[Rfam]
RNA sequence: ACCUCGUGAUGAGGGCAUCUACAUAGUAACUCAUUGAAUCUUUCCCGCACCUCGUAUAAGGACUCGUCAUCUAAUUGUUGAAAAGUGGUGAUCUCAUUCUGCAACU
Number, nucleotide and partner (000 for none) at each position: 001a106002c000003c000004u103005c101006g100007u000008g000009a000010u000011g000012a000013g000014g000015g000016c000017a000018u000019c000020u000021a000022c000023a000024u000025a000026g000027u000028a000029a000030c000031u000032c000033a000034u000035u000036g000037a000038a000039u000040c000041u000042u000043u000044c000045c000046c000047g000048c000049a000050c000051c000052u000053c000054g000055u000056a000057u074058a000059a000060g071061g000062a000063c000064u000065c000066g000067u000068c000069a000070u000071c060072u000073a000074a057075u000076u000077g000078u000079u000080g000081a000082a000083a000084a000085g000086u000087g000088g000089u000090g000091a000092u000093c000094u000095c000096a000097u000098u000099c000100u006101g005102c000103a004104a000105c000106u001
RNA: Plant small nucleolar RNA R71